[Rfam]
RNA sequence: UCACUCACUGAUGCCGAUGCCAUCGUUUCAAUUGUCCUCCCAACAAAAACAAACUUGGCUACCUGCUGGGUUUU
Numbered sequence: 001u002c003a004c005u006c007a008c009u010g011a012u013g014c015c016g017a018u019g020c021c022a023u024c025g026u027u028u029c030a031a032u033u034g035u036c037c038u039c040c041c042a043a044c045a046a047a048a049a050c051a052a053a054c055u056u057g058g059c060u061a062c063c064u065g066c067u068g069g070g071u072u073u074u
Stems, first nucleotide, its partner, number of pairs: 016039002019036001021034001051073009
RNA: isrJ Hfq binding RNA